This 102-nucleotide RNA sequence from Amphiprion ocellaris belongs to the Rfam family "Vault RNA". The literature on the family includes a 2009 paper in Mol Biol Evol by Stadler et al., "Evolution of Vault RNAs". It is annotated as a non-coding RNA gene. The source organism's lineage runs through Eukaryota, Acanthomorphata, Euacanthomorphacea, Ovalentaria and Amphiprion. Rfam describes the family as follows. This family of RNAs are found as part of the enigmatic vault ribonucleoprotein complex. The family has 73 seed sequences and 2,873 matches in Rfam 15.1.
[Rfam]
RNA sequence: GCACUGGUUUAGCUCAGUGGUUCCUUCUCUGCACAAAUCUACUUGAUUUCGUGGGUCAAAUCCCUCUCGGGGACCAAACCACGGGCGCUGUCCAGUGCUUUU
Numbered sequence: 001g002c003a004c005u006g007g008u009u010u011a012g013c014u015c016a017g018u019g020g021u022u023c024c025u026u027c028u029c030u031g032c033a034c035a036a037a038u039c040u041a042c043u044u045g046a047u048u049u050c051g052u053g054g055g056u057c058a059a060a061u062c063c064c065u066c067u068c069g070g071g072g073a074c075c076a077a078a079c080c081a082c083g084g085g086c087g088c089u090g091u092c093c094a095g096u097g098c099u100u101u102u
Base pairs, nucleotide, nucleotide: 002097003096004095005094006093007092012086013085014084015083017082018081019080020079025073026072027071028070029069